[Rfam]
RNA sequence: AGUUGAACGUUAAUGGAGGAUUAGUACGCGGGUCUUUAUGUGUUAGAGAGCAGGGUUAUUUGCUGGAAGACCCUGUCACAUUUAAGCCGCAGAACCUACCUCCUGAGUCCUAUGCCAAACAUGGGCGCCAACCUAGCGUUAUCAGGCAAAGCGGGAUGUGCUAGUCGCAUCCAAUAUAGGUGGUACCGCGGAAGUAAGCCCUUUCGUCCUUUAU
Number, nucleotide and partner (000 for none) at each position: 001a000002g000003u000004u000005g000006a000007a108008c107009g000010u000011u000012a000013a000014u000015g103016g102017a101018g100019g000020a000021u000022u000023a000024g000025u000026a000027c000028g090029c089030g088031g087032g000033u000034c000035u000036u000037u000038a000039u080040g079041u078042g000043u000044u000045a000046g000047a000048g000049a000050g076051c075052a074053g073054g072055g071056u070057u069058a000059u000060u000061u000062g000063c000064u000065g000066g000067a000068a000069g057070a056071c055072c054073c053074u052075g051076u050077c000078a041079c040080a039081u000082u000083u000084a000085a000086g000087c031088c030089g029090c028091a000092g000093a000094a000095c000096c000097u000098a000099c000100c018101u017102c016103c015104u000105g000106a000107g008108u007109c000110c124111u123112a122113u121114g120115c000116c000117a000118a000119a000120c114121a113122u112123g111124g110125g000126c138127g137128c136129c000130a000131a000132c000133c000134u000135a000136g128137c127138g126139u000140u000141a000142u000143c000144a000145g000146g000147c000148a000149a000150a000151g000152c000153g000154g172155g171156a170157u169158g168159u167160g166161c000162u000163a000164g000165u000166c160167g159168c158169a157170u156171c155172c154173a000174a000175u000176a000177u000178a210179g209180g208181u000182g000183g000184u000185a000186c000187c000188g207189c206190g205191g204192a203193a202194g201195u000196a000197a000198g000199c000200c000201c194202u193203u192204u191205c190206g189207u188208c180209c179210u178211u000212u000213a000214u000
Rfam assigns this 214-nucleotide RNA sequence from Mesobacillus persicus to the family "T-box leader". For this family Rfam cites "The GA motif: an RNA element common to bacterial antitermination systems, rRNA, and eukaryotic RNAs" (Winkler et al., RNA, 2001). Rfam describes the family as follows. Uncharged tRNA acts as the effector for transcription antitermination of genes in the T-box leader family. T-boxes are found upstream of many aminoacyl-tRNA synthetase genes and some amino acid biosynthetic genes usually in Gram-positive bacteria. The anticodon of a specific tRNA base pairs to a specifier sequence within the T-box motif, and the NCCA acceptor tail of the tRNA base pairs to a conserved bulge in the T-box antiterminator hairpin.